[Rfam]
RNA: Alphaproteobacteria transfer-messenger RNA
Organism: Amaricoccus solimangrovi
RNA sequence: CCCCUUCAAAACGGCGGGCGGCGGACCUAUAUUCCCUCCUGUCCGGGCAACCGGACUAUGGUGAUAAACGCGCACGUAAUAAGCGGAUCGGACCCGGGGGCGGUACCCGGCGGCUCCACCAGACACCCUCGUUGGGGGCGGACGGGGCCGAAACAGGAUCGACGGACGUCCAAAGGUGUUAGCUUUCACUCGGCUGGAUGCCACCGUUACCGGCUCAAGAGCAAUAGUUGCCAACGACAACCACGCUCCGGUCGCGCUCGCCGCGUAAGCGGUUCGCAAGACCAAAUCUAAGCCCCGGGCUCUAGCAGGUCCGGGCGGGGUUCGCAGGCACCUGGCAACAGAAGCCUGCACU
Number, nucleotide and partner (000 for none) at each position: 001c000002c000003c000004c000005u000006u000007c000008a000009a000010a000011a000012c000013g000014g000015c000016g000017g000018g000019c000020g000021g000022c000023g000024g000025a000026c000027c000028u000029a000030u000031a000032u000033u000034c000035c000036c000037u000038c000039c000040u000041g056042u055043c054044c053045g052046g000047g000048c000049a000050a000051c000052c045053g044054g043055a042056c041057u000058a000059u000060g190061g189062u188063g187064a186065u000066a000067a000068a000069c000070g183071c182072g179073c178074a177075c176076g000077u000078a000079a000080u000081a000082a000083g000084c168085g167086g000087a000088u165089c164090g163091g000092a000093c000094c110095c109096g108097g107098g106099g000100g000101c000102g000103g000104u000105a000106c098107c097108c096109g095110g094111c150112g149113g148114c147115u146116c145117c144118a000119c000120c000121a000122g000123a000124c000125a000126c000127c000128c000129u000130c000131g000132u000133u000134g000135g000136g000137g000138g000139c000140g000141g000142a000143c000144g117145g116146g115147g114148c113149c112150g111151a000152a000153a000154c000155a000156g000157g000158a000159u000160c000161g000162a000163c090164g089165g088166a000167c085168g084169u000170c000171c000172a000173a000174a000175g000176g075177u074178g073179u072180u000181a000182g071183c070184u000185u000186u064187c063188a062189c061190u060191c206192g205193g204194c000195u000196g000197g216198a215199u000200g214201c213202c212203a000204c193205c192206g191207u000208u000209a000210c000211c000212g202213g201214c200215u198216c197217a000218a000219g000220a000221g000222c000223a000224a000225u000226a000227g000228u000229u000230g000231c000232c000233a000234a000235c000236g000237a000238c000239a000240a000241c000242c000243a000244c000245g000246c000247u000248c000249c000250g000251g000252u000253c000254g000255c000256g000257c000258u000259c000260g000261c000262c000263g000264c000265g000266u000267a000268a000269g000270c000271g000272g000273u000274u000275c000276g000277c000278a000279a000280g000281a000282c000283c000284a000285a000286a000287u000288c000289u000290a000291a000292g000293c000294c000295c000296c000297g000298g000299g000300c000301u000302c000303u000304a000305g000306c000307a000308g000309g000310u000311c000312c000313g000314g000315g000316c000317g000318g333319g332320g331321u330322u000323c000324g349325c348326a347327g346328g345329c344330a321331c320332c319333u318334g000335g000336c000337a000338a000339c000340a000341g000342a000343a000344g329345c328346c327347u326348g325349c324350a000351c000352u000